RNA sequence: UGCCACAAUGAUGACAUUUUAUUUGCUACUCUUGACUGUGAGGAUGACGAGCAUUAUUACCACCAUUAUCCUAACUGAGGCA
Numbered sequence: 001u002g003c004c005a006c007a008a009u010g011a012u013g014a015c016a017u018u019u020u021a022u023u024u025g026c027u028a029c030u031c032u033u034g035a036c037u038g039u040g041a042g043g044a045u046g047a048c049g050a051g052c053a054u055u056a057u058u059a060c061c062a063c064c065a066u067u068a069u070c071c072u073a074a075c076u077g078a079g080g081c082a
Base pairs, nucleotide, nucleotide: 001082002081003080004079

This 82-nucleotide sequence from Camelus ferus belongs to the Rfam family "Small nucleolar RNA SNORD24". A search with the family's covariance model found it, with a score of 52 bits. Pairs were carried over by alignment from the consensus structure, which was predicted with PFOLD. Its family is annotated with RNA processing and nucleolus in the Gene Ontology. Rfam 15.1 lists 2,843 matches to the family in 1,188 species. By type it is a C/D-box small nucleolar RNA.